[Rfam]
Record summary
Rfam assigns this 59-nucleotide RNA from Desulforamulus hydrothermalis to the family "Fluoride riboswitch aptamer (crcB RNA motif)".

Nucleotides: 059
Base pairs, nucleotide, nucleotide: 010025011024012023013022016050017049018048019047020046021045030040031039032038
Number, partner (000 for none) and nucleotide at each position: 001000a002000a003000a004000g005000u006000g007000a008000a009000u010025g011024g012023c013022g014000a015000u016050g017049g018048a019047g020046u021045u022013c023012g024011c025010c026000u027000a028000a029000c030040g031039c032038u033000g034000u035000u036000c037000a038032a039031g040030c041000u042000g043000a044000u045021g046020a047019c048018u049017c050016c051000u052000a053000c054000c055000c056000c057000u058000u059000g

Taxonomically the source falls in Desulforamulus hydrothermalis (Bacteria, Bacillati, Bacillota, Desulforamulus).
The base pairs follow the family's consensus structure, which is taken from published work.
Its family is annotated with positive regulation of gene expression and response to fluoride in the Gene Ontology.